[Rfam]
RNA sequence: AGGUAAUGUCUCCCGCACCUUUAUCACUGGAGGCACUCGGUCAUGCUGUGGGCCUGGCGGCCUUAGACGUUCAUCGUCAAGAGUGUGAUGUGAGGCGGGGUUAAAUGCCCU
Numbered sequence: 001a002g003g004u005a006a007u008g009u010c011u012c013c014c015g016c017a018c019c020u021u022u023a024u025c026a027c028u029g030g031a032g033g034c035a036c037u038c039g040g041u042c043a044u045g046c047u048g049u050g051g052g053c054c055u056g057g058c059g060g061c062c063u064u065a066g067a068c069g070u071u072c073a074u075c076g077u078c079a080a081g082a083g084u085g086u087g088a089u090g091u092g093a094g095g096c097g098g099g100g101u102u103a104a105a106u107g108c109c110c111u
Stems, first nucleotide, its partner, number of pairs: 001020004007035007036094004040089008050063005066078004097111005
epsC RNA: a 111-nucleotide RNA from Paenibacillus protaetiae. It is annotated as a cis-regulatory element. NCBI's taxonomy places the organism under Bacteria, Bacillota, Caryophanales, Paenibacillaceae, Paenibacillus.